RNA: DUF805b RNA
Organism: Kordia algicida
RNA sequence: CAGGCGGUAAUCCGAAAAGCCUUGAUUAGAGUAGGAA
Number, nucleotide and partner (000 for none) at each position: 001c000002a022003g021004g020005c019006g000007g000008u000009a000010a000011u036012c035013c034014g000015a000016a000017a000018a000019g005020c004021c003022u002023u000024g000025a000026u000027u000028a000029g000030a000031g000032u000033a000034g013035g012036a011037a000